[Rfam]
RNA: c-di-AMP riboswitch aptamer (ydaO/yuaA leader)
RNA sequence: GGGCAAAAACAGCCGAAUCCCGGAAAAUUACCAACCGGGUACGGGGGAACCAUUUUUUAGGGGUGAAUCCCAACUCACAUCUCACAUCUCAUAGGGUAGGAUAUCUUUUACCGAACCCGUCAGCUAACCCCGGAGGCGAAAAAGAAAGGGGAU
Numbered sequence: 001g002g003g004c005a006a007a008a009a010c011a012g013c014c015g016a017a018u019c020c021c022g023g024a025a026a027a028u029u030a031c032c033a034a035c036c037g038g039g040u041a042c043g044g045g046g047g048a049a050c051c052a053u054u055u056u057u058u059a060g061g062g063g064u065g066a067a068u069c070c071c072a073a074c075u076c077a078c079a080u081c082u083c084a085c086a087u088c089u090c091a092u093a094g095g096g097u098a099g100g101a102u103a104u105c106u107u108u109u110a111c112c113g114a115a116c117c118c119g120u121c122a123g124c125u126a127a128c129c130c131c132g133g134a135g136g137c138g139a140a141a142a143a144g145a146a147a148g149g150g151g152a153u
Stems, first nucleotide, its partner, number of pairs: 012137003019039005042132005051060001061118003069096003099112002102110001